[Rfam]
RNA sequence: UCCGUCUUGUCGGGGUGCUAUCUAAAAAGCUGAGACUGAGUAUUCAGAACCCGUUGACCUGAUCCGGUUAGUACCGGCGUAGGGAUUCGAGAUCAAAUCUAAU
Numbered sequence: 001u002c003c004g005u006c007u008u009g010u011c012g013g014g015g016u017g018c019u020a021u022c023u024a025a026a027a028a029g030c031u032g033a034g035a036c037u038g039a040g041u042a043u044u045c046a047g048a049a050c051c052c053g054u055u056g057a058c059c060u061g062a063u064c065c066g067g068u069u070a071g072u073a074c075c076g077g078c079g080u081a082g083g084g085a086u087u088c089g090a091g092a093u094c095a096a097a098u099c100u101a102a103u
Stems, first nucleotide, its partner, number of pairs: 006091004011053004016047001017030003021026001037046003058083004064077004
RNA: TPP riboswitch aptamer (THI element)
Organism: Alkalimarinus sediminis